The family of this 115-nucleotide RNA sequence from Megasphaera geminata is "FMN riboswitch aptamer (RFN element)". The source organism's lineage runs through Bacteria, Veillonellales, Veillonellaceae, Megasphaera and Megasphaera geminata. On this family, see Vitreschak et al., Nucleic Acids Res 2002: "Regulation of riboflavin biosynthesis and transport genes in bacteria by transcriptional and translational attenuation".
RNA sequence: UUAUAUCUUCAGGGCAGGGUGAAAUUCCCGAUCGGCGGUACAGUCCGCGAACGCCAUGCGUAGAUUCGGUGCAACUCCGAAACCGACAGUAUAGUCUGGAUGAGAGAAGAUAGAG
Numbered sequence: 001u002u003a004u005a006u007c008u009u010c011a012g013g014g015c016a017g018g019g020u021g022a023a024a025u026u027c028c029c030g031a032u033c034g035g036c037g038g039u040a041c042a043g044u045c046c047g048c049g050a051a052c053g054c055c056a057u058g059c060g061u062a063g064a065u066u067c068g069g070u071g072c073a074a075c076u077c078c079g080a081a082a083c084c085g086a087c088a089g090u091a092u093a094g095u096c097u098g099g100a101u102g103a104g105a106g107a108a109g110a111u112a113g114a115g
Stems, first nucleotide, its partner, number of pairs: 004112007017029003031095002033085002035048004043083002051061003065081005087098003